The record is a 483-nucleotide part of an RNA from Funneliformis mosseae, which matches "Eukaryotic large subunit ribosomal RNA" in Rfam.

RNA sequence: UAGAACAAUGUAGAUAAGGGAAUUCGGCAAAUUAGAUCCGUAACUUAGGGAAAAGGAUUGGCUCUAAGGAUUGGGAUCAUUAAAAUCUGAACUUGAAGGUUUGAUAGGAUGCGAGAGGCAUCUUCUAAGAAAUUGGAAGAUGGAGCUUUCAUCUCGUUGGAUUUGAAGGUUCGGAUUUGAUGAUCGAUUAACAAUCAACUUAGAACUGGUACGGACAAGGGGAAUCUGACUGUCUAAUAAAAACAUAGCAUUGUGAUGGCCGUAAUCGGUGUUGACACAAUGUGAUUUCUGCCCAGUGCUCUGAAUGUGAAAGUGAAGAAAUUCAAACAAGCGCGGGUAAACGGCGGGAGUAACUAUGACUCUCUUAAGGUAGCCAAAUGCCUCGUCAUCUAAUUAGUGACGUGCACGAAUGGAUUAACGAGAUUCCCACUGUCCCUAUCUACUAUCUAGCGAAACCACAGCCAAGGGAACGGGCUUGGCAAA
Numbered sequence: 001u002a003g004a005a006c007a008a009u010g011u012a013g014a015u016a017a018g019g020g021a022a023u024u025c026g027g028c029a030a031a032u033u034a035g036a037u038c039c040g041u042a043a044c045u046u047a048g049g050g051a052a053a054a055g056g057a058u059u060g061g062c063u064c065u066a067a068g069g070a071u072u073g074g075g076a077u078c079a080u081u082a083a084a085a086u087c088u089g090a091a092c093u094u095g096a097a098g099g100u101u102u103g104a105u106a107g108g109a110u111g112c113g114a115g116a117g118g119c120a121u122c123u124u125c126u127a128a129g130a131a132a133u134u135g136g137a138a139g140a141u142g143g144a145g146c147u148u149u150c151a152u153c154u155c156g157u158u159g160g161a162u163u164u165g166a167a168g169g170u171u172c173g174g175a176u177u178u179g180a181u182g183a184u185c186g187a188u189u190a191a192c193a194a195u196c197a198a199c200u201u202a203g204a205a206c207u208g209g210u211a212c213g214g215a216c217a218a219g220g221g222g223a224a225u226c227u228g229a230c231u232g233u234c235u236a237a238u239a240a241a242a243a244c245a246u247a248g249c250a251u252u253g254u255g256a257u258g259g260c261c262g263u264a265a266u267c268g269g270u271g272u273u274g275a276c277a278c279a280a281u282g283u284g285a286u287u288u289c290u291g292c293c294c295a296g297u298g299c300u301c302u303g304a305a306u307g308u309g310a311a312a313g314u315g316a317a318g319a320a321a322u323u324c325a326a327a328c329a330a331g332c333g334c335g336g337g338u339a340a341a342c343g344g345c346g347g348g349a350g351u352a353a354c355u356a357u358g359a360c361u362c363u364c365u366u367a368a369g370g371u372a373g374c375c376a377a378a379u380g381c382c383u384c385g386u387c388a389u390c391u392a393a394u395u396a397g398u399g400a401c402g403u404g405c406a407c408g409a410a411u412g413g414a415u416u417a418a419c420g421a422g423a424u425u426c427c428c429a430c431u432g433u434c435c436c437u438a439u440c441u442a443c444u445a446u447c448u449a450g451c452g453a454a455a456c457c458a459c460a461g462c463c464a465a466g467g468g469a470a471c472g473g474g475c476u477u478g479g480c481a482a483a
Stems, first nucleotide, its partner, number of pairs: 001449004010443007018435003035059005044049001060207002063204006069196005075185009085176003089172004098164002101161001102159004107154005113148003119142010208212001220428007227420002231245003248283008259270004287414003291345003296342002298338004303334001306333003314325004346364006365369001385401005462479005